Bacterial RNase P class A: a 420-nucleotide RNA from Qipengyuania pelagi. A search with the family's covariance model found it, with a score of 276 bits. Pairs were carried over by alignment from the consensus structure, which is taken from published work. The family is grouped with related families in Rfam's "RNaseP clan". By type it is a ribozyme. From the family's description: Ribonuclease P (RNase P) is a ubiquitous endoribonuclease, found in archaea, bacteria and eukarya as well as chloroplasts and mitochondria. The organism belongs to Qipengyuania, within Bacteria.
RNA sequence: CCAGGGGGCCGGGCAGCCGCGGCGUUACGACGUCGAGGAAAGUCCGGGCUCCACGAAACGAGGGUGGCGGGUAACGCCCGCCAGAGGCAACUCUAGGGAAAGUGCCACAGAGAGCAUACCGCCGAUGGCCGGCUUCAUGUCGGCACAGGCAAGGGUGAAAGGGUGCGGUAAGAGCGCACCGGGGCUUCGGCAACGCGGCUCGCAUGGUAAACCCCACCCGGAGCAAGGCCGAAUAGGGGCGGCGCGCCGGCUUGUCCGGCAGGGGUGUUUCGCCCCUGGCUCGCGCUGCGACCGCCCGGGUUGGCUGCUUGAGCCGCGGAGCGAUCCGCGGCCCAGACGAAUGGCUGCCGCCGCAGAUACGGUCCGCCCGUCGGAUACCGUCUGCGGACACAGAACCCGGCUUACAGGCCCCCUGGCACC
Numbered sequence: 001c002c003a004g005g006g007g008g009c010c011g012g013g014c015a016g017c018c019g020c021g022g023c024g025u026u027a028c029g030a031c032g033u034c035g036a037g038g039a040a041a042g043u044c045c046g047g048g049c050u051c052c053a054c055g056a057a058a059c060g061a062g063g064g065u066g067g068c069g070g071g072u073a074a075c076g077c078c079c080g081c082c083a084g085a086g087g088c089a090a091c092u093c094u095a096g097g098g099a100a101a102g103u104g105c106c107a108c109a110g111a112g113a114g115c116a117u118a119c120c121g122c123c124g125a126u127g128g129c130c131g132g133c134u135u136c137a138u139g140u141c142g143g144c145a146c147a148g149g150c151a152a153g154g155g156u157g158a159a160a161g162g163g164u165g166c167g168g169u170a171a172g173a174g175c176g177c178a179c180c181g182g183g184g185c186u187u188c189g190g191c192a193a194c195g196c197g198g199c200u201c202g203c204a205u206g207g208u209a210a211a212c213c214c215c216a217c218c219c220g221g222a223g224c225a226a227g228g229c230c231g232a233a234u235a236g237g238g239g240c241g242g243c244g245c246g247c248c249g250g251c252u253u254g255u256c257c258g259g260c261a262g263g264g265g266u267g268u269u270u271c272g273c274c275c276c277u278g279g280c281u282c283g284c285g286c287u288g289c290g291a292c293c294g295c296c297c298g299g300g301u302u303g304g305c306u307g308c309u310u311g312a313g314c315c316g317c318g319g320a321g322c323g324a325u326c327c328g329c330g331g332c333c334c335a336g337a338c339g340a341a342u343g344g345c346u347g348c349c350g351c352c353g354c355a356g357a358u359a360c361g362g363u364c365c366g367c368c369c370g371u372c373g374g375a376u377a378c379c380g381u382c383u384g385c386g387g388a389c390a391c392a393g394a395a396c397c398c399g400g401c402u403u404a405c406a407g408g409c410c411c412c413c414u415g416g417c418a419c420c
Stems, first nucleotide, its partner, number of pairs: 001416010011405001012349007020035006040403003044400005049223004062219005067081005082096001083094004097214002102212002104208003119154002121150003126145002129142001162180006181203001182201005188195002227306004237297006277290001279289002313332008